Source information:
Shown here is a 90-nucleotide RNA from Sesamum indicum, a member of the family "mir-395 microRNA precursor family". From the family's description: mir-395 was identified in both Arabidopsis thaliana and Oryza sativa computationally and was later experimentally verified. mir-395 is thought to target mRNAs coding for ATP sulphurylases. The mature sequence is excised from the 3' arm of the hairpin. Rfam links the family to the GO terms miRNA-mediated post-transcriptional gene silencing and RISC complex. A reference for the family is Jones-Rhoades and Bartel (2004), "Computational Identification of Plant MicroRNAs and Their Targets, Including a Stress-Induced miRNA", Mol Cell. NCBI's taxonomy places the organism under Eukaryota, Tracheophyta, Gunneridae, Pedaliaceae, Sesamum.
RNA sequence: GUUUCACCUGGAGUUCCCUUAAGCGCUUCAUUGAGCAGUGUUUUAAAGAGCAAAACUCGCUGAAGUGUUUGGGGGAACUCCUGGAGGGAU
Numbered sequence: 001g002u003u004u005c006a007c008c009u010g011g012a013g014u015u016c017c018c019u020u021a022a023g024c025g026c027u028u029c030a031u032u033g034a035g036c037a038g039u040g041u042u043u044u045a046a047a048g049a050g051c052a053a054a055a056c057u058c059g060c061u062g063a064a065g066u067g068u069u070u071g072g073g074g075g076a077a078c079u080c081c082u083g084g085a086g087g088g089a090u
Base pairs, nucleotide, nucleotide: 005086007084008083011080012079013078014077015076016075017074018073019072020071021070022069023068024067025066026065027064028063029062030061032059033058034057035056